Iron response element II: a 31-nucleotide sequence from Pheucticus melanocephalus. IRE, TFRC, SLC40A1, SDHB, SLC11A2, CDC42BPA, ACO2, ALAS2_H.SAPIENS, CDC14A, EPAS1, ALAS2, qoxD, Hao1, NDUFS1, transferrin, Aconitate. The family's consensus secondary structure is taken from published work.

[Rfam]
RNA sequence: AAUAAAUCAGGUACAGAGCUACCUAUUUUUU
Numbered sequence: 001a002a003u004a005a006a007u008c009a010g011g012u013a014c015a016g017a018g019c020u021a022c023c024u025a026u027u028u029u030u031u
Base pairs, nucleotide, nucleotide: 001031002030004028005027006026007025009024010023011022012021013020014018